[Rfam]
RNA: Bacterial RNase P class A
Organism: Methylobrevis albus
RNA sequence: CCAGCCGGUCGGACGACCGCCCUGACGAGACGCGAAAGCGUGUCCGGGAGGAAAGUCCGGGCUCCACGGAAACACGGUGCCGGGUAACGCCCGGCGGGGGCGACCCCAGGGAAAGUGCCACAGAGAUCGAACCGCCCCGGGUCCGCCCGGGGUAAGGGUGAAAAGGUGGGGUAAGAGCCCACCGCGCUGCCGGCAACGGUGGCGGCAUGGCAAACCCCACCGGGAGCAAAACCGAAUAGGGGCGGCGCGGGCGCUUUUCAGGCGCCCAGUUCGUUUCCGAGCCAGUCGCCCGGGUGGGUUGCACGAGGCGUCCGGUAACGGGCGUCCCAGAUGAAUGGUCGUCGGACGGGGAAACCCGUCGCACAGAACCCGGCUUACAGACCGGCUGGCAUU
Numbered sequence: 001c002c003a004g005c006c007g008g009u010c011g012g013a014c015g016a017c018c019g020c021c022c023u024g025a026c027g028a029g030a031c032g033c034g035a036a037a038g039c040g041u042g043u044c045c046g047g048g049a050g051g052a053a054a055g056u057c058c059g060g061g062c063u064c065c066a067c068g069g070a071a072a073c074a075c076g077g078u079g080c081c082g083g084g085u086a087a088c089g090c091c092c093g094g095c096g097g098g099g100g101c102g103a104c105c106c107c108a109g110g111g112a113a114a115g116u117g118c119c120a121c122a123g124a125g126a127u128c129g130a131a132c133c134g135c136c137c138c139g140g141g142u143c144c145g146c147c148c149g150g151g152g153u154a155a156g157g158g159u160g161a162a163a164a165g166g167u168g169g170g171g172u173a174a175g176a177g178c179c180c181a182c183c184g185c186g187c188u189g190c191c192g193g194c195a196a197c198g199g200u201g202g203c204g205g206c207a208u209g210g211c212a213a214a215c216c217c218c219a220c221c222g223g224g225a226g227c228a229a230a231a232c233c234g235a236a237u238a239g240g241g242g243c244g245g246c247g248c249g250g251g252c253g254c255u256u257u258u259c260a261g262g263c264g265c266c267c268a269g270u271u272c273g274u275u276u277c278c279g280a281g282c283c284a285g286u287c288g289c290c291c292g293g294g295u296g297g298g299u300u301g302c303a304c305g306a307g308g309c310g311u312c313c314g315g316u317a318a319c320g321g322g323c324g325u326c327c328c329a330g331a332u333g334a335a336u337g338g339u340c341g342u343c344g345g346a347c348g349g350g351g352a353a354a355c356c357c358g359u360c361g362c363a364c365a366g367a368a369c370c371c372g373g374c375u376u377a378c379a380g381a382c383c384g385g386c387u388g389g390c391a392u393u
Stems, first nucleotide, its partner, number of pairs: 001389010011378001012343007020048003024044004053376003057373005062226004071276002075222005080094005095109001096107004110217002115215002117211003132157002134153008165183006184206001185204008230300004240291006269282004307326008